[Rfam]
Nucleotides: 072
Base pairs, nucleotide, nucleotide: 001071002070003069004068005067006066007065010024011023012022026042027041028040029039030038048064049063050062051061052060
Number, partner (000 for none) and nucleotide at each position: 001071g002070a003069a004068u005067c006066g007065g008000u009000g010024g011023c012022c013000a014000a015000g016000c017000g018000g019000u020000a021000a022012g023011g024010c025000g026042u027041g028040u029039g030038a031000u032000u033000g034000c035000a036000a037000a038030u039029c040028a041027c042026a043000a044000g045000a046000u047000c048064c049063c050062g051061u052060g053000u054000u055000c056000g057000a058000u059000c060052c061051a062050c063049g064048g065007u066006c067005g068004g069003u070002u071001c072000u
tRNA: a 72-nucleotide RNA sequence from Aspergillus chevalieri. Gene Ontology term of the family: triplet codon-amino acid adaptor activity. It is annotated as a transfer RNA. The source organism's lineage runs through Eukaryota, saccharomyceta, Eurotiomycetes, Eurotiomycetidae and Aspergillus subgen. Aspergillus.